[Rfam]
RNA sequence: GCAAGAUCAAUGAGGGGGAAGAGUAUAUAUAGGUAAUUUUAAAGAGAGUUAGUGUCAGGUGGAAGACUAACAAAGGACUAUAUAGAAAGCAGCCCUGGAGAUUCACUUUGAGAAAUCCGAUACUAUUUAAAUAUAAAUUGUAUUGGACAUUAGAAGAUGACGAGACCUCGCGUUAUAGAGGAACGGUAUAUUUUGUAUCGGUUGAGACAGCAUUUUUGUGUGCUAAUUAGGGUGGUACCGCGGAAUACUCCUUCGCCCCUUUC
Numbered sequence: 001g002c003a004a005g006a007u008c009a010a011u012g013a014g015g016g017g018g019a020a021g022a023g024u025a026u027a028u029a030u031a032g033g034u035a036a037u038u039u040u041a042a043a044g045a046g047a048g049u050u051a052g053u054g055u056c057a058g059g060u061g062g063a064a065g066a067c068u069a070a071c072a073a074a075g076g077a078c079u080a081u082a083u084a085g086a087a088a089g090c091a092g093c094c095c096u097g098g099a100g101a102u103u104c105a106c107u108u109u110g111a112g113a114a115a116u117c118c119g120a121u122a123c124u125a126u127u128u129a130a131a132u133a134u135a136a137a138u139u140g141u142a143u144u145g146g147a148c149a150u151u152a153g154a155a156g157a158u159g160a161c162g163a164g165a166c167c168u169c170g171c172g173u174u175a176u177a178g179a180g181g182a183a184c185g186g187u188a189u190a191u192u193u194u195g196u197a198u199c200g201g202u203u204g205a206g207a208c209a210g211c212a213u214u215u216u217u218g219u220g221u222g223c224u225a226a227u228u229a230g231g232g233u234g235g236u237a238c239c240g241c242g243g244a245a246u247a248c249u250c251c252u253u254c255g256c257c258c259c260u261u262u263c
Base pairs, nucleotide, nucleotide: 007101008100015096016095017094018093026084027083028082029081030080031079037074038073039072048071049070050069051068052067053066104159105158106156107155108154109153161172162171209224210223211222212221213220229260230259231258232257240256241255242254243253244252
Shown here is a 263-nucleotide RNA from Pseudobacteroides cellulosolvens, a member of the family "T-box leader".
By type it is a cis-regulatory leader.
The organism belongs to Pseudobacteroides cellulosolvens, within Bacteria.
The family's consensus secondary structure is taken from published work.